[Rfam]
RNA sequence: UACCAGCGCAUCAUCUUCAUACCUCCCUGUUGGACUUGGCCGGACUUCGUGUCCGGCCUUUUUU
Dot-bracket structure: (...((........))..)..................((((((((.....))))))))......
Numbered sequence: 001u002a003c004c005a006g007c008g009c010a011u012c013a014u015c016u017u018c019a020u021a022c023c024u025c026c027c028u029g030u031u032g033g034a035c036u037u038g039g040c041c042g043g044a045c046u047u048c049g050u051g052u053c054c055g056g057c058c059u060u061u062u063u064u
Stems, first nucleotide, its partner, number of pairs: 001019001005016002038058008